[Rfam]
RNA sequence: UGCAAAUGAUGAUAACUUGCUGUCUAAUACACGUGAGGACAACCACCAAGAUCGCUGAUGCA
Numbered sequence: 001u002g003c004a005a006a007u008g009a010u011g012a013u014a015a016c017u018u019g020c021u022g023u024c025u026a027a028u029a030c031a032c033g034u035g036a037g038g039a040c041a042a043c044c045a046c047c048a049a050g051a052u053c054g055c056u057g058a059u060g061c062a
Base pairs, nucleotide, nucleotide: 001062002061003060004059
This 62-nucleotide RNA from Athene cunicularia belongs to the Rfam family "Small nucleolar RNA SNORD24". The match comes from Rfam's covariance-model search (46 bits). On this family, see Kiss-Laszlo et al., Cell 1996: "Site-specific ribose methylation of preribosomal RNA: a novel function for small nucleolar RNAs". Pairs were carried over by alignment from the consensus structure, which was predicted with PFOLD.